[Rfam]
RNA sequence: GCGCUGGUCGUCUAGUGGUUAGGACAUUGUCUUCCCAAGCUCAGAGGAAGAGGCAGGUACGCGGGUUCGAAUCCCGCCCGGCGCA
Numbered sequence: 001g002c003g004c005u006g007g008u009c010g011u012c013u014a015g016u017g018g019u020u021a022g023g024a025c026a027u028u029g030u031c032u033u034c035c036c037a038a039g040c041u042c043a044g045a046g047g048a049a050g051a052g053g054c055a056g057g058u059a060c061g062c063g064g065g066u067u068c069g070a071a072u073c074c075c076g077c078c079c080g081g082c083g084c085a
Stems, first nucleotide, its partner, number of pairs: 001084007010025004027056007061077005
A member of the RNA family "tRNA" from Aspergillus arachidicola, 85 nucleotides long.
The organism belongs to Aspergillus subgen. Circumdati, within Eukaryota.